RNA: Manganese Mn2+ riboswitch aptamer (yybP-ykoY)
RNA sequence: ACGUCAGUCAUCUGGGGAGUAGCCAGCCGUCGCGAGACGGGCCUUCGCGUCAACAUACUUGGUCGAGAGGCCAUGGUGCGAAGGGGACGAUACCGCGAGCCGGUGUUCGUCC
Numbered sequence: 001a002c003g004u005c006a007g008u009c010a011u012c013u014g015g016g017g018a019g020u021a022g023c024c025a026g027c028c029g030u031c032g033c034g035a036g037a038c039g040g041g042c043c044u045u046c047g048c049g050u051c052a053a054c055a056u057a058c059u060u061g062g063u064c065g066a067g068a069g070g071c072c073a074u075g076g077u078g079c080g081a082a083g084g085g086g087a088c089g090a091u092a093c094c095g096c097g098a099g100c101c102g103g104u105g106u107u108c109g110u111c112c
Base pairs, nucleotide, nucleotide: 027040028039029038043083044082045081046080047079048078049077050076051075052074060073061072062071063070064069085112086111087110088109089108090107